[Rfam]
RNA sequence: ACACGAGAAGGGAGGUGGUUCGGCAGAUGAUGAAGUACCGGACGCGUGAGGUGACUGCGGGCUAGUGGUCCGCCGUCGCGCUUGAGCGCAAUGCCGGACCCGGGUGCCUAGGACGCAUCCAGCCGGCCCUUAUCCCAAGCAGUUCACCCGACCCGCGGUCCGCCGGGACGUCCGACCGGCUCCCCUCCAGGGGAAUGGGCCGCGGGUCGUCUGCU
Numbered sequence: 001a002c003a004c005g006a007g008a009a010g011g012g013a014g015g016u017g018g019u020u021c022g023g024c025a026g027a028u029g030a031u032g033a034a035g036u037a038c039c040g041g042a043c044g045c046g047u048g049a050g051g052u053g054a055c056u057g058c059g060g061g062c063u064a065g066u067g068g069u070c071c072g073c074c075g076u077c078g079c080g081c082u083u084g085a086g087c088g089c090a091a092u093g094c095c096g097g098a099c100c101c102g103g104g105u106g107c108c109u110a111g112g113a114c115g116c117a118u119c120c121a122g123c124c125g126g127c128c129c130u131u132a133u134c135c136c137a138a139g140c141a142g143u144u145c146a147c148c149c150g151a152c153c154c155g156c157g158g159u160c161c162g163c164c165g166g167g168a169c170g171u172c173c174g175a176c177c178g179g180c181u182c183c184c185c186u187c188c189a190g191g192g193g194a195a196u197g198g199g200c201c202g203c204g205g206g207u208c209g210u211c212u213g214c215u
Base pairs, nucleotide, nucleotide: 015058016057017056018055019054060128061127062126063125065123066122149209150208151207152206153205154204155203156202157201158200159199160198161197162180163179164178165177166176
Shown here is a 215-nucleotide RNA from Streptomyces sp. CNQ-509, a member of the family "Actinobacteria sRNA Ms_IGR-5". The base pairs follow the family's consensus structure.